[Rfam]
RNA sequence: ACCGAGAUCAUUCACGAGAGCUUGUAACUCGAGCGGGGGCAAUGGGUGGUUCGGACGCUUGGUUACGCUUGUGAGCCUGGGUCCAGAUGGGGCGUAUGGUUGGCACGCUCGUUCCAAGUUGGGUAGUGAGAUGUGCGGCUUGGGUGAAAGCUUGGGUCACGUUUCUCCUAAAGUGGAGGGGACUGCAUGAGGCUGGCUUCAUAGAGCAGCGAAUACCUCCCGCUCUCAUCGAUGGAAGGAUAACGGGCCACCGCACCAUGUACCCUUCGUGGCCCACAGGCAAACCAUCAGGGGACAACCAUCUUU
Numbered sequence: 001a002c003c004g005a006g007a008u009c010a011u012u013c014a015c016g017a018g019a020g021c022u023u024g025u026a027a028c029u030c031g032a033g034c035g036g037g038g039g040c041a042a043u044g045g046g047u048g049g050u051u052c053g054g055a056c057g058c059u060u061g062g063u064u065a066c067g068c069u070u071g072u073g074a075g076c077c078u079g080g081g082u083c084c085a086g087a088u089g090g091g092g093c094g095u096a097u098g099g100u101u102g103g104c105a106c107g108c109u110c111g112u113u114c115c116a117a118g119u120u121g122g123g124u125a126g127u128g129a130g131a132u133g134u135g136c137g138g139c140u141u142g143g144g145u146g147a148a149a150g151c152u153u154g155g156g157u158c159a160c161g162u163u164u165c166u167c168c169u170a171a172a173g174u175g176g177a178g179g180g181g182a183c184u185g186c187a188u189g190a191g192g193c194u195g196g197c198u199u200c201a202u203a204g205a206g207c208a209g210c211g212a213a214u215a216c217c218u219c220c221c222g223c224u225c226u227c228a229u230c231g232a233u234g235g236a237a238g239g240a241u242a243a244c245g246g247g248c249c250a251c252c253g254c255a256c257c258a259u260g261u262a263c264c265c266u267u268c269g270u271g272g273c274c275c276a277c278a279g280g281c282a283a284a285c286c287a288u289c290a291g292g293g294g295a296c297a298a299c300c301a302u303c304u305u306u
Base pairs, nucleotide, nucleotide: 002039003038004023005022006021008019009018011016028037029036030035042306044304045303046302047301048300049299050298051297053296056293058291059290061286062285063284064283068280069279070278071277072276073275075273076272077271079265080264081263082262084260085259090256092254101250102249103248104247106245107244109239110238112237113236114235115234116233118230120228121227122226123225125224126223127222128167129166130165131164133162134161135160137158138157139156140155141154142153143152144151145150168173175220176219177218178217179216184213186211188209193204194203195202
The record is a 306-nucleotide RNA from Cocos nucifera, which matches "Plant signal recognition particle RNA" in Rfam. The family's RNA type in Rfam is non-coding RNA gene. NCBI's taxonomy places the organism under Eukaryota, Petrosaviidae, Arecales, Arecaceae, Cocos.